[Rfam]
RNA sequence: CUGAAAUGAUGAGAUUCCACUUCAUCGGUCCGUGUUUCUGAAAAGCAUGAUAACAGUGGAAGUUCUGAUCAG
Numbered sequence: 001c002u003g004a005a006a007u008g009a010u011g012a013g014a015u016u017c018c019a020c021u022u023c024a025u026c027g028g029u030c031c032g033u034g035u036u037u038c039u040g041a042a043a044a045g046c047a048u049g050a051u052a053a054c055a056g057u058g059g060a061a062g063u064u065c066u067g068a069u070c071a072g
Base pairs, nucleotide, nucleotide: 001072002071003070004069
RNA: Small nucleolar RNA SNORD18
Organism: Baryphthengus martii